[Rfam]
RNA sequence: CAGGACCUCAUUGUGCUUGAUCUAACCAUGCAGUGGUGUCUUCUGUCCAUGGUUGUGCCAAGCACCUUGAAGCCUUG
Numbered sequence: 001c002a003g004g005a006c007c008u009c010a011u012u013g014u015g016c017u018u019g020a021u022c023u024a025a026c027c028a029u030g031c032a033g034u035g036g037u038g039u040c041u042u043c044u045g046u047c048c049a050u051g052g053u054u055g056u057g058c059c060a061a062g063c064a065c066c067u068u069g070a071a072g073c074c075u076u077g
Base pairs, nucleotide, nucleotide: 001077002076003075004074006072008070009069013065014064015063016062017061018060019059024054025053026052027051028050029049030048
RNA: mir-218 microRNA precursor family